This 78-nucleotide RNA sequence from Suricata suricatta belongs to the Rfam family "Small nucleolar RNA SNORD113/SNORD114 family". For this family Rfam cites "Identification of tandemly-repeated C/D snoRNA genes at the imprinted human 14q32 domain reminiscent of those at the Prader-Willi/Angelman syndrome region" (Cavaille et al., Hum Mol Genet, 2002). Gene Ontology terms of the family: RNA processing and nucleolus. By type it is a C/D-box small nucleolar RNA. The source organism's lineage runs through Eukaryota, Laurasiatheria, Carnivora, Feliformia and Suricata. The imprinted human domain at 14q32 contains two clusters of tandemly repeated small nucleolar RNAs named 14q(I) and 14q(II) snoRNAs. These two clusters are named SNORD113 and SNORD114 respectively in the HGNC approved gene symbol nomenclature. The snoRNAs found in both clusters are clearly related and are represented here by a single family. These snoRNAs are intron encoded and are processed from the tissue-specific non-coding human MEG8 RNA, which lies downstream of the imprinted genes DLK1 and GTL2. snoRNAs 14q(I) and 14q(II) differ from previously identified C/D box snoRNAs in their expression profiles and lack of complementarity to rRNA and snRNA. Homologues of these snoRNAs are found in the imprinted non-coding mouse transcript Rian, and in the rat non-coding Bsr (brain-specific repetitive) RNA. The base pairs follow the family's consensus structure, which is taken from published work.

RNA sequence: UGGAUCAAUGAUGAGUAUCGGUGGAGGUAUCUGAAUCCCCACCCUGGAUGCAGCCCGCUGUGUGGCUCUGAGGUCCAU
Numbered sequence: 001u002g003g004a005u006c007a008a009u010g011a012u013g014a015g016u017a018u019c020g021g022u023g024g025a026g027g028u029a030u031c032u033g034a035a036u037c038c039c040c041a042c043c044c045u046g047g048a049u050g051c052a053g054c055c056c057g058c059u060g061u062g063u064g065g066c067u068c069u070g071a072g073g074u075c076c077a078u
Stems, first nucleotide, its partner, number of pairs: 002076005